[Rfam]
RNA sequence: ACAGAUGUCAAAGGGGAGUAGCACUGAUUUUUAGGAAUCAGGAUAAAAUCGUCAUUACAUGGAUACGGCGUAUUCAUCGGUUUUAUUAACAUGUCACAUGUCAGCGAGACCUUUGCCCAUAAAUCGGGUGAGGUCUCGCUUUUUUUAUCCUCACUCGGACUGUU
Numbered sequence: 001a002c003a004g005a006u007g008u009c010a011a012a013g014g015g016g017a018g019u020a021g022c023a024c025u026g027a028u029u030u031u032u033a034g035g036a037a038u039c040a041g042g043a044u045a046a047a048a049u050c051g052u053c054a055u056u057a058c059a060u061g062g063a064u065a066c067g068g069c070g071u072a073u074u075c076a077u078c079g080g081u082u083u084u085a086u087u088a089a090c091a092u093g094u095c096a097c098a099u100g101u102c103a104g105c106g107a108g109a110c111c112u113u114u115g116c117c118c119a120u121a122a123a124u125c126g127g128g129u130g131a132g133g134u135c136u137c138g139c140u141u142u143u144u145u146u147a148u149c150c151u152c153a154c155u156c157g158g159a160c161u162g163u164u
Base pairs, nucleotide, nucleotide: 025040026039027038042087043086044085045084046083047082048081049080050079051078059077060076061075062074063073064072065071066070093164
RNA: Manganese Mn2+ riboswitch aptamer (yybP-ykoY)
Organism: Listeria kieliensis